[Rfam]
RNA sequence: UGAUCAUGCCUUUCAGGCAUCCUCUCCUAAAAACUUUAUCGGGUCAGCCUUCGGGCUGGCCCUUUUUUUGUCUGCUG
Dot-bracket structure: .......((((...))))......................(((((((((....)))))))))...............
Makes More Granules Regulator RNA (mmgR): a 77-nucleotide RNA from Blastomonas sp. AAP25. Taxonomically the source falls in Blastomonas (Bacteria, Pseudomonadati, Pseudomonadota, Blastomonadaceae). The base pairs follow the family's consensus structure. The family's RNA type in Rfam is small RNA.